Rfam assigns this 97-nucleotide sequence from Paracoccus sanguinis to the family "Rhodo-rpoB RNA". It is annotated as a cis-regulatory element. NCBI's taxonomy places the organism under Bacteria, Alphaproteobacteria, Rhodobacterales, Paracoccaceae, Paracoccus. The match comes from Rfam's covariance-model search (54 bits). Pairs were carried over by alignment from the consensus structure, which is taken from published work.
Nucleotides: 097
Base pairs, nucleotide, nucleotide: 001043002042003041004040005039010031011030013028014027015026016025017024070096071095073093074091075090076089077088078087
Number, partner (000 for none) and nucleotide at each position: 001043g002042g003041u004040u005039c006000g007000g008000g009000a010031g011030c012000g013028g014027g015026g016025c017024g018000g019000u020000g021000g022000g023000a024017c025016g026015c027014c028013c029000g030011g031010c032000a033000c034000g035000a036000a037000u038000u039005g040004a041003g042002c043001c044000g045000c046000a047000c048000c049000c050000c051000c052000u053000g054000a055000u056000g057000u058000u059000c060000g061000c062000a063000a064000g065000c066000g067000c068000g069000c070096c071095g072000c073093g074091g075090a076089u077088c078087g079000g080000g081000c082000c083000c084000c085000g086000a087078c088077g089076a090075u091074c092000c093073c094000c095071c096070g097000c